Notes: The record is a 66-nucleotide RNA from Cytobacillus dafuensis, which matches "Bacillaceae-1 RNA" in Rfam. By type it is a small RNA. The match comes from Rfam's covariance-model search (54 bits). The base pairs follow the family's consensus structure, which is taken from published work.

RNA sequence: CCUACCUCCUCGCCGACUAAAGACGCCACGUCCUGUGGCAACGUCGGCACUAGUACGUCCUGUACG
Numbered sequence: 001c002c003u004a005c006c007u008c009c010u011c012g013c014c015g016a017c018u019a020a021a022g023a024c025g026c027c028a029c030g031u032c033c034u035g036u037g038g039c040a041a042c043g044u045c046g047g048c049a050c051u052a053g054u055a056c057g058u059c060c061u062g063u064a065c066g
Stems, first nucleotide, its partner, number of pairs: 012048006025039005053065004